[Rfam]
RNA sequence: UAGUCAUUGGACAAAGUGAAUGGGUCACAUGGGCUUGUCUAAGUUCCGACCCAGGAAAGUCCCCGGGCCACUUUUCGCAGAGAUGCGGCCUCGGUAACGAGAGAAUCAUGCGGUGGAGAGAUUCUAUAAGCUGAGACGCGUGUGUGGAGCUUCUGUUGUCUCUCCGUCGAUGACAUCAUGGCCGUUCGAUUCACGACAGUUAUUCACUUGGUCCUCAUCGGACUAACUGAACGGGGCUUAUGUUCCAAUGACA
Number, nucleotide and partner (000 for none) at each position: 001u000002a000003g252004u251005c250006a249007u248008u247009g246010g245011a244012c000013a000014a209015a208016g207017u206018g205019a204020a000021u000022g052023g000024g000025u000026c000027a000028c000029a000030u000031g046032g045033g044034c043035u042036u041037g000038u000039c000040u000041a036042a035043g034044u033045u032046c031047c000048g000049a000050c000051c000052c022053a000054g000055g000056a000057a239058a238059g237060u000061c236062c235063c234064c233065g000066g000067g000068c000069c000070a000071c000072u000073u000074u000075u000076c087077g086078c085079a084080g000081a000082g000083a000084u079085g078086c077087g076088g000089c000090c101091u100092c099093g098094g000095u000096a000097a000098c093099g092100a091101g090102a000103g000104a000105a000106u173107c172108a000109u000110g000111c169112g168113g167114u166115g165116g164117a163118g162119a161120g160121a000122u000123u000124c000125u000126a000127u000128a152129a151130g150131c149132u000133g000134a000135g000136a000137c000138g145139c144140g000141u000142g000143u000144g139145u138146g000147g000148a000149g131150c130151u129152u128153c000154u000155g000156u000157u000158g000159u000160c120161u119162c118163u117164c116165c115166g114167u113168c112169g111170a000171u000172g107173a106174c000175a000176u000177c000178a000179u000180g000181g000182c000183c000184g000185u000186u000187c000188g000189a000190u000191u000192c000193a000194c000195g000196a000197c000198a000199g000200u000201u000202a000203u000204u019205c018206a017207c016208u015209u014210g000211g223212u222213c221214c220215u000216c000217a000218u000219c000220g214221g213222a212223c211224u000225a000226a000227c000228u000229g000230a000231a000232c000233g064234g063235g062236g061237c059238u058239u057240a000241u000242g000243u000244u011245c010246c009247a008248a007249u006250g005251a004252c003253a000
RNA: RNase MRP
Organism: Arabidopsis thaliana